[Rfam]
RNA sequence: CUUAAAAACUAGGGGAGCUCUGUUAGGGCUGAGAAAGGGAUGGAAUCUCUUGACCCUUUGAACCUGAUCUGGUUAGUACUAGCGCAGGAAAGUUGUCUUUAAUUUUA
Numbered sequence: 001c002u003u004a005a006a007a008a009c010u011a012g013g014g015g016a017g018c019u020c021u022g023u024u025a026g027g028g029c030u031g032a033g034a035a036a037g038g039g040a041u042g043g044a045a046u047c048u049c050u051u052g053a054c055c056c057u058u059u060g061a062a063c064c065u066g067a068u069c070u071g072g073u074u075a076g077u078a079c080u081a082g083c084g085c086a087g088g089a090a091a092g093u094u095g096u097c098u099u100u101a102a103u104u105u106u107a
Base pairs, nucleotide, nucleotide: 007094008093009092010091011057012056013055014054016051017029018028019027020026021025036050037049038048039047040046063088064087065086066085069082070081071080072079
Rfam assigns this 107-nucleotide sequence from Acetohalobium arabaticum to the family "TPP riboswitch aptamer (THI element)". A search with the family's covariance model found it, with a score of 81 bits. The organism belongs to Acetohalobium arabaticum, within Bacteria.